RNA sequence: UGGGGGUGCCUUUACUCGGAUCGUCCGGCACGUUCCUGCCGGUGAAGGGAAGUACA
Numbered sequence: 001u002g003g004g005g006g007u008g009c010c011u012u013u014a015c016u017c018g019g020a021u022c023g024u025c026c027g028g029c030a031c032g033u034u035c036c037u038g039c040c041g042g043u044g045a046a047g048g049g050a051a052g053u054a055c056a
Stems, first nucleotide, its partner, number of pairs: 009048006025042006

Record summary: Shown here is a 56-nucleotide sequence from Kribbella solani, a member of the family "msiK RNA".